[Rfam]
RNA sequence: UGGUGCCCAACGUGGCGGCUGGAUACUGGGGGCACAUCGUGAGGGAGAAGGGAGAAGGGAGAGAAAAGGAGUGCACUCGCUAAAUCUCAAGGAAUUCGGAGAGCCUGCCGGGAGCCUGCCGCAACCAAACCGAAAGUAAGUCAAUCCGUCCGAUUAUGGGGCAAGAAUUGAGCCAGCAUCAGAUUUAUGUCAAGCAAUUGAGAGAGGCUCUAAAGACACGAGGAGUAAAGGUUAGGACUGCGGAUUUAUUUCAUUUCUUUGAUUUUGUAAAGGACAUUUGUCCCU
Numbered sequence: 001u002g003g004u005g006c007c008c009a010a011c012g013u014g015g016c017g018g019c020u021g022g023a024u025a026c027u028g029g030g031g032g033c034a035c036a037u038c039g040u041g042a043g044g045g046a047g048a049a050g051g052g053a054g055a056a057g058g059g060a061g062a063g064a065a066a067a068g069g070a071g072u073g074c075a076c077u078c079g080c081u082a083a084a085u086c087u088c089a090a091g092g093a094a095u096u097c098g099g100a101g102a103g104c105c106u107g108c109c110g111g112g113a114g115c116c117u118g119c120c121g122c123a124a125c126c127a128a129a130c131c132g133a134a135a136g137u138a139a140g141u142c143a144a145u146c147c148g149u150c151c152g153a154u155u156a157u158g159g160g161g162c163a164a165g166a167a168u169u170g171a172g173c174c175a176g177c178a179u180c181a182g183a184u185u186u187a188u189g190u191c192a193a194g195c196a197a198u199u200g201a202g203a204g205a206g207g208c209u210c211u212a213a214a215g216a217c218a219c220g221a222g223g224a225g226u227a228a229a230g231g232u233u234a235g236g237a238c239u240g241c242g243g244a245u246u247u248a249u250u251u252c253a254u255u256u257c258u259u260u261g262a263u264u265u266u267g268u269a270a271a272g273g274a275c276a277u278u279u280g281u282c283c284c285u
Stems, first nucleotide, its partner, number of pairs: 006031003012026003037051002040048001093137001095134002103126001106123003110120002145163001147161001149160004169212002172208003219261007229247005270285001272283004
Shown here is a 285-nucleotide sequence from Nannospalax galili, a member of the family "Mason-Pfizer monkey virus packaging signal". By type it is a cis-regulatory element. The family's consensus secondary structure was predicted with PFOLD. The source organism's lineage runs through Eukaryota, Eumetazoa, Bilateria, Spalacinae and Nannospalax.